Overview
Shown here is a 184-nucleotide sequence from Orycteropus afer, a member of the family "Small Cajal body specific RNA 16". The family's consensus secondary structure was predicted with RNAfold. By type it is a small Cajal body RNA. For this family Rfam cites "Cajal body-specific small nuclear RNAs: a novel class of 2'-O-methylation and pseudouridylation guide RNAs" (Darzacq et al., EMBO J, 2002). NCBI's taxonomy places the organism under Eukaryota, Chordata, Vertebrata, Sarcopterygii, Orycteropus afer. Rfam's curators write: scaRNAs are a specific class of small nuclear RNAs which localise to the Cajal bodies and guide the modification of RNA polymerase II transcribed spliceosomal RNAs U1, U2, U4, U5 and U12. ACA47 belongs to the H/ACA box class of guide RNAs as it has the predicted hairpin-hinge-hairpin-tail structure, the conserved H/ACA-box motifs and is found associated with GAR1. ACA47 is predicted to guide the pseudouridylation of residue U5 of the U1 spliceosomal snRNA. Its family is annotated with nucleolus and RNA processing in the Gene Ontology.
RNA sequence: GUGGUCUGGGGGACGGCUCCUGUGUGGCUGAACCUGCCCAGCUGUGGGUGCAGCCUGGUACCAGACAGCCCAGCCCUGACCCAGAGCAAAUUCCCGGGAGGAGCUUCCUGGGUUUGAACUUGCAGUAACAGGUGUGAACAUUCUGGCAGCAGCUUGAUGGUCAUGUAUGAUACUGCAAACAGGA
Numbered sequence: 001g002u003g004g005u006c007u008g009g010g011g012g013a014c015g016g017c018u019c020c021u022g023u024g025u026g027g028c029u030g031a032a033c034c035u036g037c038c039c040a041g042c043u044g045u046g047g048g049u050g051c052a053g054c055c056u057g058g059u060a061c062c063a064g065a066c067a068g069c070c071c072a073g074c075c076c077u078g079a080c081c082c083a084g085a086g087c088a089a090a091u092u093c094c095c096g097g098g099a100g101g102a103g104c105u106u107c108c109u110g111g112g113u114u115u116g117a118a119c120u121u122g123c124a125g126u127a128a129c130a131g132g133u134g135u136g137a138a139c140a141u142u143c144u145g146g147c148a149g150c151a152g153c154u155u156g157a158u159g160g161u162c163a164u165g166u167a168u169g170a171u172a173c174u175g176c177a178a179a180c181a182g183g184a
Stems, first nucleotide, its partner, number of pairs: 003081004008076003015070004020064003024061002026055005032049003093112003096108005120178008129169002135163003139159004145154003